[Rfam]
RNA sequence: AGGAGCCCAGCAGGAGCGACAAUAGAUCAUAUGCGGUUGUUCUAAGAUUACGGUUUGAAAACCUUAUCCACUUCAUGUGUUCUCAGGUCGCCCCUGUAGGUCUUUC
Numbered sequence: 001a002g003g004a005g006c007c008c009a010g011c012a013g014g015a016g017c018g019a020c021a022a023u024a025g026a027u028c029a030u031a032u033g034c035g036g037u038u039g040u041u042c043u044a045a046g047a048u049u050a051c052g053g054u055u056u057g058a059a060a061a062c063c064u065u066a067u068c069c070a071c072u073u074c075a076u077g078u079g080u081u082c083u084c085a086g087g088u089c090g091c092c093c094c095u096g097u098a099g100g101u102c103u104u105u106c
Stems, first nucleotide, its partner, number of pairs: 007100002011096004016091004024083003028079005